[Rfam]
RNA sequence: GAACAAAGAGAUCGACACUAGUCAGCGAGGGUUCGCCCACUAGUGCGAUUACU
Dot-bracket structure: ...............(((((((..((((....))))..)))))))........

Notes:
A member of the RNA family "ffh sRNA", 53 nucleotides long. The sequence is in the family's curated seed alignment. A reference for the family is Meyer et al. (2009), "Identification of candidate structured RNAs in the marine organism 'Candidatus Pelagibacter ubique'", BMC Genomics.